[Rfam]
RNA: Repression of heat shock gene expression (ROSE) element
RNA sequence: UACGCGAUGCCGAAGUCGGGUCGCGUAGUGACUUAACUUGCUGAAUCUCAGGAGUUCAUGACCAUGACU
Numbered sequence: 001u002a003c004g005c006g007a008u009g010c011c012g013a014a015g016u017c018g019g020g021u022c023g024c025g026u027a028g029u030g031a032c033u034u035a036a037c038u039u040g041c042u043g044a045a046u047c048u049c050a051g052g053a054g055u056u057c058a059u060g061a062c063c064a065u066g067a068c069u
Stems, first nucleotide, its partner, number of pairs: 001027008010019003031055001037054003041051004